[Rfam]
RNA: Nuclear RNase P
Organism: Echinostoma caproni
RNA sequence: GCCGGGCGGAGAGUGCAUGUGCGAGGUCCUUAGGGCAUUUGGUUGCUCGUUUACCUCGCGGGAAGGUCUGAGACAAGUAGCACACAAUCUCCGUGAUGGGGGGCUACGUAAGAGAAGCGCGGGUCAACAGACACGGCUUCGGGGGGGCGCUACGAACUCUGAGAGCAGUCAAUUUGGCUGUGAGGGUCAGGCGUCGCCUCGGAAUGAGACGAUCCGUGCUGAGCGCGUAAAGCGAGAUUUGCACUACCAGAACUCAAUUCAGACUACUCCCGCCGCGGC
Numbered sequence: 001g002c003c004g005g006g007c008g009g010a011g012a013g014u015g016c017a018u019g020u021g022c023g024a025g026g027u028c029c030u031u032a033g034g035g036c037a038u039u040u041g042g043u044u045g046c047u048c049g050u051u052u053a054c055c056u057c058g059c060g061g062g063a064a065g066g067u068c069u070g071a072g073a074c075a076a077g078u079a080g081c082a083c084a085c086a087a088u089c090u091c092c093g094u095g096a097u098g099g100g101g102g103g104c105u106a107c108g109u110a111a112g113a114g115a116a117g118c119g120c121g122g123g124u125c126a127a128c129a130g131a132c133a134c135g136g137c138u139u140c141g142g143g144g145g146g147g148c149g150c151u152a153c154g155a156a157c158u159c160u161g162a163g164a165g166c167a168g169u170c171a172a173u174u175u176g177g178c179u180g181u182g183a184g185g186g187u188c189a190g191g192c193g194u195c196g197c198c199u200c201g202g203a204a205u206g207a208g209a210c211g212a213u214c215c216g217u218g219c220u221g222a223g224c225g226c227g228u229a230a231a232g233c234g235a236g237a238u239u240u241g242c243a244c245u246a247c248c249a250g251a252a253c254u255c256a257a258u259u260c261a262g263a264c265u266a267c268u269c270c271c272g273c274c275g276c277g278g279c
Stems, first nucleotide, its partner, number of pairs: 001279004007272003012245006021059005033048005068262005078221004088102005103118003107114001119217007138203002